[Rfam]
RNA sequence: CUCAUGGAGGUCUCGGAUUCGCUUGGUGCAGCCCGGGAAUUGAUUGGCUGACACAACGACAUGCUUUGCCAUCGUUGGCUUGUGAACACGAAUCAGUUCCCGUGUAGCACCAAUGGAAUCGGAGGCCGAGGUGAAA
Numbered sequence: 001c002u003c004a005u006g007g008a009g010g011u012c013u014c015g016g017a018u019u020c021g022c023u024u025g026g027u028g029c030a031g032c033c034c035g036g037g038a039a040u041u042g043a044u045u046g047g048c049u050g051a052c053a054c055a056a057c058g059a060c061a062u063g064c065u066u067u068g069c070c071a072u073c074g075u076u077g078g079c080u081u082g083u084g085a086a087c088a089c090g091a092a093u094c095a096g097u098u099c100c101c102g103u104g105u106a107g108c109a110c111c112a113a114u115g116g117a118a119u120c121g122g123a124g125g126c127c128g129a130g131g132u133g134a135a136a
Stems, first nucleotide, its partner, number of pairs: 013123002017119004023113007031105002034102005040096005
RNA: MIR168 microRNA precursor family
Organism: Microthlaspi erraticum